This 316-nucleotide RNA sequence from Siminovitchia fortis belongs to the Rfam family "Bacterial RNase P class A".
Rfam describes the family as follows. Ribonuclease P (RNase P) is a ubiquitous endoribonuclease, found in archaea, bacteria and eukarya as well as chloroplasts and mitochondria.
A search with the family's covariance model found it, with a score of 244 bits.
Rfam links the family to the GO terms ribonuclease P activity, tRNA processing and dimeric ribonuclease P complex.
RNA sequence: UGGGAGACUGGCGUUGACGUCCUUCGGGAGACUGACAAAGGGGAGGAAAGUCCGGGCUCCAUAGAGCAGGGUGCCAGGUAACGCCUGGGGGGCGCAAGCCCACGACAAGUGCAGCAGAGAGAAGACCGCCGAUGGCCUCAUUUCUUCGGAAGGGGCACAGGUAAGGGUGAAAGGGUGCGGUAAGAGCGCACCGGACGGCUAGCAAUAGUCCGUUGCAGGGUAAACUCCACCCGGAGCAAGACCAAAUAGGCCUCCACAUUGCGUUGCUCGCGUAAGGAGGCGGGUAGGUUGCUUGAGCCAGUGAGCGAUUGCUGGC
Number, nucleotide and partner (000 for none) at each position: 001u000002g000003g000004g000005a000006g000007a000008c000009u000010g000011g000012c000013g000014u000015u000016g000017a000018c000019g000020u043021c042022c041023u040024u039025c000026g000027g036028g000029a000030g000031a000032c000033u000034g000035a000036c027037a000038a000039a024040g023041g022042g021043g020044a000045g000046g000047a000048a000049a000050g000051u000052c000053c000054g000055g000056g000057c236058u235059c234060c233061a000062u000063a000064g269065a268066g267067c266068a000069g232070g231071g230072u229073g228074c088075c087076a086077g085078g084079u000080a000081a000082c000083g000084c078085c077086u076087g075088g074089g103090g101091g100092g099093c098094g000095c000096a000097a000098g093099c092100c091101c090102a000103c089104g227105a226106c000107a000108a000109g225110u224111g221112c220113a000114g000115c000116a000117g000118a000119g000120a000121g000122a000123a000124g000125a000126c166127c165128g162129c161130c160131g000132a000133u157134g156135g000136c154137c153138u152139c000140a000141u000142u000143u000144c000145u000146u000147c000148g000149g000150a000151a000152g138153g137154g136155g000156c134157a133158c000159a000160g130161g129162u128163a000164a000165g127166g126167g000168u000169g000170a000171a000172a000173g000174g192175g191176u190177g189178c188179g187180g000181u000182a000183a000184g000185a000186g000187c179188g178189c177190a176191c175192c174193g216194g214195a213196c212197g211198g210199c208200u207201a206202g000203c000204a000205a000206u201207a200208g199209u000210c198211c197212g196213u195214u194215g000216c193217a000218g000219g000220g112221u111222a000223a000224a110225c109226u105227c104228c073229a072230c071231c070232c069233g060234g059235a058236g057237c000238a000239a000240g290241a289242c288243c287244a000245a000246a000247u000248a000249g000250g281251c280252c279253u278254c277255c276256a000257c000258a000259u000260u274261g273262c272263g271264u270265u000266g067267c066268u065269c064270g264271c263272g262273u261274a260275a000276g255277g254278a253279g252280g251281c250282g000283g000284g000285u000286a000287g243288g242289u241290u240291g000292c000293u000294u000295g000296a000297g316298c315299c314300a313301g312302u311303g310304a309305g000306c000307g000308a000309u304310u303311g302312c301313u300314g299315g298316c297
It is annotated as a ribozyme.